[Rfam]
RNA sequence: ACUCUCACGCAGCAGGUGCAUUGUCACCAGUGAGGUUAAUCCAAGGCAUGAUAUUUGCUCACUGAAAACUGUUUCCGGUAUCCUGGCCUGAUGAUUAGAAAUAGUCAGUGUAAGCAAUUUUUGACAGUGUCUAAGGAGA
Number, nucleotide and partner (000 for none) at each position: 001a000002c000003u000004c000005u000006c000007a000008c000009g000010c000011a000012g000013c000014a000015g000016g000017u000018g000019c000020a052021u051022u050023g049024u048025c000026a000027c046028c045029a000030g000031u000032g000033a000034g042035g041036u000037u000038a000039a000040u000041c035042c034043a000044a000045g028046g027047c000048a024049u023050g022051a021052u020053a000054u000055u000056u000057g000058c000059u000060c000061a000062c000063u000064g000065a000066a000067a000068a000069c000070u000071g000072u000073u000074u000075c000076c000077g000078g000079u000080a000081u000082c000083c000084u000085g115086g000087c000088c000089u110090g109091a000092u107093g106094a105095u104096u103097a102098g000099a000100a000101a000102u097103a096104g095105u094106c093107a092108g000109u090110g089111u000112a000113a000114g000115c085116a000117a000118u000119u000120u000121u000122u000123g000124a000125c000126a000127g000128u139129g000130u137131c136132u000133a000134a000135g000136g131137a130138g000139a128
The record is a 139-nucleotide RNA sequence from Crypturellus soui, which matches "U4 spliceosomal RNA" in Rfam. The organism belongs to Crypturellus, within Eukaryota. It scores 54 bits against the family's covariance model. By type it is a spliceosomal small nuclear RNA. The base pairs follow the family's consensus structure, which is taken from published work.